[Rfam]
RNA sequence: UCGACUGUACUUUACAGGAUCUGUAUAUAGUCAGUCACCGGUCCUUGUUUUCCAACAAAGACACACGAAUUAAACUGGAUGAUGAAUUACAGUGCACCAUCCGUAAAGGGAAGUGUGGUUAUAAUUUCUGAUCCGUAAGGGUUAAGAUUAUUUCCAGUUGAUGAUCUUGCCACAUCCUUAUUCCGAGGGUCUGGCGAGGAUGGUUGCACAGUCUGACAGUAA
Numbered sequence: 001u002c003g004a005c006u007g008u009a010c011u012u013u014a015c016a017g018g019a020u021c022u023g024u025a026u027a028u029a030g031u032c033a034g035u036c037a038c039c040g041g042u043c044c045u046u047g048u049u050u051u052c053c054a055a056c057a058a059a060g061a062c063a064c065a066c067g068a069a070u071u072a073a074a075c076u077g078g079a080u081g082a083u084g085a086a087u088u089a090c091a092g093u094g095c096a097c098c099a100u101c102c103g104u105a106a107a108g109g110g111a112a113g114u115g116u117g118g119u120u121a122u123a124a125u126u127u128c129u130g131a132u133c134c135g136u137a138a139g140g141g142u143u144a145a146g147a148u149u150a151u152u153u154c155c156a157g158u159u160g161a162u163g164a165u166c167u168u169g170c171c172a173c174a175u176c177c178u179u180a181u182u183c184c185g186a187g188g189g190u191c192u193g194g195c196g197a198g199g200a201u202g203g204u205u206g207c208a209c210a211g212u213c214u215g216a217c218a219g220u221a222a
Base pairs, nucleotide, nucleotide: 001041002040003039006034009031010030011029016026018024045068046067047066048065050063053060074220075219076218077217092209093208094207095206096205097203098202099201100200101199102198106168107167108166109165116156117155118154120150169195170194171193172192174190175189176188177187
ACEA small nucleolar RNA U3: a 222-nucleotide sequence from Cetraspora pellucida. Rfam describes the family as follows. Small nucleolar RNAs (snoRNAs) are involved in the processing and modification of rRNA in the nucleolus. There are two main classes of snoRNAs: the box C/D class, and the box H/ACA class. U3 snoRNA is a member of the box C/D class. Indeed, the box C/D element is a subset of the six short sequence elements found in all U3 snoRNAs, namely boxes A, A', B, C, C', and D. The U3 snoRNA secondary structure is characterised by a small 5' domain (with boxes A and A'), and a larger 3' domain (with boxes B, C, C', and D), the two domains being linked by a single-stranded hinge. The family is grouped with related families in Rfam's "U3 clan". On this family, see Speckmann et al., Mol Cell Biol 1999: "Nuclear retention elements of U3 small nucleolar RNA".